[Rfam]
The family of this 132-nucleotide RNA from Clupea harengus is "Small nucleolar RNA SNORA75". The match comes from Rfam's covariance-model search (97 bits). U23 belongs to the H/ACA class of snoRNAs. snoRNAs bind a number of proteins (including dyskerin, Gar1p and Nop10p in the case of the H/ACA class) to form snoRNP complexes. This class are thought to guide the sites of modification of uridines to pseudouridines by forming direct base pairing interactions with substrate RNAs.
RNA sequence: UUCUUCUCAUGAGCUCCUCUCUGUCCAAUCAGUGGCGGUGUAUGGAUUCGCACGAGAAGUAGAGGAAAACUCACAGAUGAACGGGCGUCUCCCUUCUAGAGGGAGUUGCCCAAGUCUUGUUGUGAGACAACU
Numbered sequence: 001u002u003c004u005u006c007u008c009a010u011g012a013g014c015u016c017c018u019c020u021c022u023g024u025c026c027a028a029u030c031a032g033u034g035g036c037g038g039u040g041u042a043u044g045g046a047u048u049c050g051c052a053c054g055a056g057a058a059g060u061a062g063a064g065g066a067a068a069a070c071u072c073a074c075a076g077a078u079g080a081a082c083g084g085g086c087g088u089c090u091c092c093c094u095u096c097u098a099g100a101g102g103g104a105g106u107u108g109c110c111c112a113a114g115u116c117u118u119g120u121u122g123u124g125a126g127a128c129a130a131c132u
Stems, first nucleotide, its partner, number of pairs: 003059006013051002015046003021038005071125006089105006